The record is a 69-nucleotide RNA from Crossiella cryophila, which matches "ASpks TB sRNA" in Rfam. Pairs were carried over by alignment from the consensus structure, which is taken from published work. It is annotated as an antisense RNA. It scores 75 bits against the family's covariance model.
[Rfam]
RNA sequence: CUUCAGCGAGCCCAGCAGCAGCGGCCGCUCCCGGUCCUGCCCGUAGGUGGCCAGCAACGCCUGCGCCUC
Numbered sequence: 001c002u003u004c005a006g007c008g009a010g011c012c013c014a015g016c017a018g019c020a021g022c023g024g025c026c027g028c029u030c031c032c033g034g035u036c037c038u039g040c041c042c043g044u045a046g047g048u049g050g051c052c053a054g055c056a057a058c059g060c061c062u063g064c065g066c067c068u069c
Stems, first nucleotide, its partner, number of pairs: 015025002028065001030063001032059002037054003041050003